[Rfam]
This 140-nucleotide RNA from Sodalis ligni belongs to the Rfam family "Leucine operon leader". The source organism's lineage runs through Bacteria, Pseudomonadati, Pseudomonadota, Enterobacterales and Sodalis. Rfam describes the family as follows. At least 6 amino acid operons are known to be regulated by attenuation. In each a leader sequence of 150-200 bp is found upstream of the first gene in the operon. Gene Ontology term of the family: leucine biosynthetic process. The family's RNA type in Rfam is cis-regulatory leader.

RNA sequence: GCCGAUAUAACAUGUUCGUUUCUACCCGUCUACUAAGCCUACUACUACUCGCACCCUUGAUGCGCGGUAUGCUGGUACACGGAGUUUAGAACUGACUCAAACGUCCCAGAUAAAAACCCGCGCAUUGCGCGGGUUUUUUU
Numbered sequence: 001g002c003c004g005a006u007a008u009a010a011c012a013u014g015u016u017c018g019u020u021u022c023u024a025c026c027c028g029u030c031u032a033c034u035a036a037g038c039c040u041a042c043u044a045c046u047a048c049u050c051g052c053a054c055c056c057u058u059g060a061u062g063c064g065c066g067g068u069a070u071g072c073u074g075g076u077a078c079a080c081g082g083a084g085u086u087u088a089g090a091a092c093u094g095a096c097u098c099a100a101a102c103g104u105c106c107c108a109g110a111u112a113a114a115a116a117c118c119c120g121c122g123c124a125u126u127g128c129g130c131g132g133g134u135u136u137u138u139u140u
Stems, first nucleotide, its partner, number of pairs: 004102001006100001008099001010097001014092004026082004031077005043069004050064004113137011